[Rfam]
RNA sequence: AAAAUGAGAAAAAGGUGAUUGAGAAGAAUAUGUUCUCUCUUUGUCUCUCUUUCUUUGAUAAAUGGAGGGAAAUCAAAGUGUCGAGAUAUCGUUUCGGUCGCCCUUUUGUUUUUGGUUGGCGAUUUGAUUGUUGACUCGAUCACAU
Numbered sequence: 001a002a003a004a005u006g007a008g009a010a011a012a013a014g015g016u017g018a019u020u021g022a023g024a025a026g027a028a029u030a031u032g033u034u035c036u037c038u039c040u041u042u043g044u045c046u047c048u049c050u051u052u053c054u055u056u057g058a059u060a061a062a063u064g065g066a067g068g069g070a071a072a073u074c075a076a077a078g079u080g081u082c083g084a085g086a087u088a089u090c091g092u093u094u095c096g097g098u099c100g101c102c103c104u105u106u107u108g109u110u111u112u113u114g115g116u117u118g119g120c121g122a123u124u125u126g127a128u129u130g131u132u133g134a135c136u137c138g139a140u141c142a143c144a145u
Stems, first nucleotide, its partner, number of pairs: 006055006013046005080141001083137003088128004097123006105115002
Shown here is a 145-nucleotide sequence from Camphora micrantha, a member of the family "Small nucleolar RNA snoR111".
The base pairs follow the family's consensus structure, which was predicted with WAR.
Rfam links the family to the GO terms nucleolus and RNA processing.